Rfam assigns this 105-nucleotide RNA from Ambrosiozyma monospora to the family "Small nucleolar RNA snR48". The source organism's lineage runs through Eukaryota, Saccharomycotina, Pichiomycetes, Pichiales and Ambrosiozyma. Its Rfam clan is "SNORD60 clan".
RNA sequence: UUUUACAUGAUGAUUUCAUUUGAUCAUUUAUAACUUUUCUUUCUGGCAUCUCUAAUGUUAGGGCUUUCGGGUUCGAUGAAUAUAACCAUUGACUAUUUUCUGACA
Numbered sequence: 001u002u003u004u005a006c007a008u009g010a011u012g013a014u015u016u017c018a019u020u021u022g023a024u025c026a027u028u029u030a031u032a033a034c035u036u037u038u039c040u041u042u043c044u045g046g047c048a049u050c051u052c053u054a055a056u057g058u059u060a061g062g063g064c065u066u067u068c069g070g071g072u073u074c075g076a077u078g079a080a081u082a083u084a085a086c087c088a089u090u091g092a093c094u095a096u097u098u099u100c101u102g103a104c105a
Stems, first nucleotide, its partner, number of pairs: 062073004